[Rfam]
RNA sequence: ACGCGACGACAGGGGAGCGCUCAUGAGGAGCGCUGAGAGUGCACAGUUGCAGACCCUCGAACCUGACGCGGUUCAUACCGCCGGAGGAAGUCGAGUCUCUUCACCC
Numbered sequence: 001a002c003g004c005g006a007c008g009a010c011a012g013g014g015g016a017g018c019g020c021u022c023a024u025g026a027g028g029a030g031c032g033c034u035g036a037g038a039g040u041g042c043a044c045a046g047u048u049g050c051a052g053a054c055c056c057u058c059g060a061a062c063c064u065g066a067c068g069c070g071g072u073u074c075a076u077a078c079c080g081c082c083g084g085a086g087g088a089a090g091u092c093g094a095g096u097c098u099c100u101u102c103a104c105c106c
Base pairs, nucleotide, nucleotide: 007093008092009091010090011057012056013055014054017033018032019031020030021029040051041050042049043048062087063086064085068081069080070079071078

This 106-nucleotide sequence from Brevibacterium luteolum belongs to the Rfam family "TPP riboswitch aptamer (THI element)". Vitamin B(1) in its active form thiamin pyrophosphate (TPP) is an essential coenzyme that is synthesised by coupling of pyrimidine and thiazole moieties in bacteria. A search with the family's covariance model found it, with a score of 61 bits. Gene Ontology term of the family: thiamine pyrophosphate binding.